Shown here is a 128-nucleotide RNA sequence from Nannospalax galili, a member of the family "Small nucleolar RNA SNORA61". It scores 87 bits against the family's covariance model. About the family: ACA61 is a member of the H/ACA class of snoRNA that guide the sites of modification of uridines to pseudouridines. Its family is annotated with RNA processing and nucleolus in the Gene Ontology. Rfam classes the family as an H/ACA-box small nucleolar RNA. The organism belongs to Nannospalax, within Eukaryota.
[Rfam]
RNA sequence: ACUCUUUGGCUCCCUUUCCUAUUGGAGCUCAACACUGGUCUUGGUGGUCUUAGGAAGGAAGAGUUUACUGAAGUUCGCCUCAUGGCUCUGUAGGCUGGUUUCAGCAUGUAGGCUAGAUUCAAACAGGA
Numbered sequence: 001a002c003u004c005u006u007u008g009g010c011u012c013c014c015u016u017u018c019c020u021a022u023u024g025g026a027g028c029u030c031a032a033c034a035c036u037g038g039u040c041u042u043g044g045u046g047g048u049c050u051u052a053g054g055a056a057g058g059a060a061g062a063g064u065u066u067a068c069u070g071a072a073g074u075u076c077g078c079c080u081c082a083u084g085g086c087u088c089u090g091u092a093g094g095c096u097g098g099u100u101u102c103a104g105c106a107u108g109u110a111g112g113c114u115a116g117a118u119u120c121a122a123a124c125a126g127g128a
Stems, first nucleotide, its partner, number of pairs: 003058005019047005025040002028037001074116002077113004089106003